[Rfam]
Nucleotides: 141
Stems, first nucleotide, its partner, number of pairs: 020052005027046002034042002085117003088113003092109005130141002133138001
Number, partner (000 for none) and nucleotide at each position: 001000a002000g003000g004000u005000u006000u007000g008000u009000g010000c011000a012000g013000u014000g015000g016000c017000a018000a019000c020052a021051u022050c023049a024048c025000a026000g027046c028045c029000g030000a031000u032000g033000a034042g035041g036000u037000u038000u039000a040000u041035c042034u043000g044000a045028g046027g047000a048024g049023u050022g051021g052020u053000u054000a055000u056000c057000g058000c059000u060000u061000u062000u063000u064000g065000a066000a067000a068000a069000c070000u071000u072000u073000u074000c075000c076000c077000a078000a079000u080000a081000u082000c083000c084000u085117g086116c087115c088113g089112u090111g091000a092109u093108g094107g095106c096105u097000u098000g099000a100000a101000a102000u103000a104000u105096a106095g107094u108093u109092g110000g111090c112089a113088u114000u115087g116086g117085c118000a119000a120000u121000u122000u123000u124000u125000g126000a127000c128000a129000c130141u131140c132000u133138c134000u135000a136000c137000g138133g139000u140131g141130a